[Rfam]
RNA sequence: UGGGAGGCUGAUACACAAAAUGGGCUGAGUACUGCUCUAAUUGUCACCAUACCUCCCUAGAAUAAACUGCCUUUUGAUGACCGGGACGAAUUGAGUGACAUCAUAAUGGAUGAGAGGAAGGGAGAA
Dot-bracket structure: .((((((.......((((...((((........))))...)))).......)))))).........((.((((.......(((..(.((...........)).)..)))........)))).))..
RNA: Small Cajal body specific RNA 8
Organism: Myotis davidii